[Rfam]
RNA sequence: CCAGCUGGCCGGGCGGCCGCACCCGCGAAGCCGAAAGGCUGCGGGUGAGGAAAGUCCGGGCUCCAUGGAAACACGGUGCCGGCUAAUGGCCGGCGGGGGCGACCCCAGGGAAAGUGCCACAGAAAGCAAACCGCCGCGAUUUUCGCGGCAAGGGUGAAAGGGUGGGGUAAGAGCCCACCGCGCGGACGGUAACGGACGCGGCAAGGUAAACCCCACCGGGAGCAAAACCGAAUAGGGGUGGCGCGAAGGGCAACCUUCAGGGCUGUUUCCGGCCCAGUCACCCGGGUAGGUUGCGUGAGGCGCAUGGCGACAUGCGCUCAAGAUGAAUGGCCGCCACGUUCCUGCCGCGAGGCAGGGGCCAUACAGAACCCGGCUUACAGGCCGGCUGGCAUU
Numbered sequence: 001c002c003a004g005c006u007g008g009c010c011g012g013g014c015g016g017c018c019g020c021a022c023c024c025g026c027g028a029a030g031c032c033g034a035a036a037g038g039c040u041g042c043g044g045g046u047g048a049g050g051a052a053a054g055u056c057c058g059g060g061c062u063c064c065a066u067g068g069a070a071a072c073a074c075g076g077u078g079c080c081g082g083c084u085a086a087u088g089g090c091c092g093g094c095g096g097g098g099g100c101g102a103c104c105c106c107a108g109g110g111a112a113a114g115u116g117c118c119a120c121a122g123a124a125a126g127c128a129a130a131c132c133g134c135c136g137c138g139a140u141u142u143u144c145g146c147g148g149c150a151a152g153g154g155u156g157a158a159a160g161g162g163u164g165g166g167g168u169a170a171g172a173g174c175c176c177a178c179c180g181c182g183c184g185g186a187c188g189g190u191a192a193c194g195g196a197c198g199c200g201g202c203a204a205g206g207u208a209a210a211c212c213c214c215a216c217c218g219g220g221a222g223c224a225a226a227a228c229c230g231a232a233u234a235g236g237g238g239u240g241g242c243g244c245g246a247a248g249g250g251c252a253a254c255c256u257u258c259a260g261g262g263c264u265g266u267u268u269c270c271g272g273c274c275c276a277g278u279c280a281c282c283c284g285g286g287u288a289g290g291u292u293g294c295g296u297g298a299g300g301c302g303c304a305u306g307g308c309g310a311c312a313u314g315c316g317c318u319c320a321a322g323a324u325g326a327a328u329g330g331c332c333g334c335c336a337c338g339u340u341c342c343u344g345c346c347g348c349g350a351g352g353c354a355g356g357g358g359c360c361a362u363a364c365a366g367a368a369c370c371c372g373g374c375u376u377a378c379a380g381g382c383c384g385g386c387u388g389g390c391a392u393u
Stems, first nucleotide, its partner, number of pairs: 001389010011378001012335007020047008052376003056373005061222004070268002074218005079093005094108001095106004109213002114211002116207003131153002133149007161179006180202001181200004187194002226292004236283006260275005299318008
Dot-bracket structure: ((((((((((((((((((.((((((((............))))))))....[[[.[[[[[((((.....[[..((((((((((.....)))))(((((....)))).)((...(((((............(((((((((...)))))))..)).......((((((.......))))))(((((..((....))..)))).)..)))..)))))))))))))...((((......((((((..................(((((..]]..)))))..)))))).....))))......((((((((....))))))))..........))))))).................................]]]]]]]].).))))))))))....
RNA: Bacterial RNase P class A
Organism: Mesorhizobium sp. Root554